Description:
A member of the RNA family "c-di-AMP riboswitch aptamer (ydaO/yuaA leader)" from Paenibacillus sp. D9, 134 nucleotides long. Taxonomically the source falls in Paenibacillus (Bacteria, Bacillota, Bacilli, Paenibacillaceae).
RNA sequence: AACAAAUAAAUGCCGAAUUUUCGCUAAGAAAAACGGGGGAACCACUCGGGGUGAAUGAAUUCUGCAAGAGAGAAUUCUAGGGAACCUUCUACCGAACCCAUCAGCUAACUUCGUAGGCACCGGAGGGAGAACCA
Numbered sequence: 001a002a003c004a005a006a007u008a009a010a011u012g013c014c015g016a017a018u019u020u021u022c023g024c025u026a027a028g029a030a031a032a033a034c035g036g037g038g039g040a041a042c043c044a045c046u047c048g049g050g051g052u053g054a055a056u057g058a059a060u061u062c063u064g065c066a067a068g069a070g071a072g073a074a075u076u077c078u079a080g081g082g083a084a085c086c087u088u089c090u091a092c093c094g095a096a097c098c099c100a101u102c103a104g105c106u107a108a109c110u111u112c113g114u115a116g117g118c119a120c121c122g123g124a125g126g127g128a129g130a131a132c133c134a
Stems, first nucleotide, its partner, number of pairs: 011119004018032005033114006043048001049099003057077006080093002083090001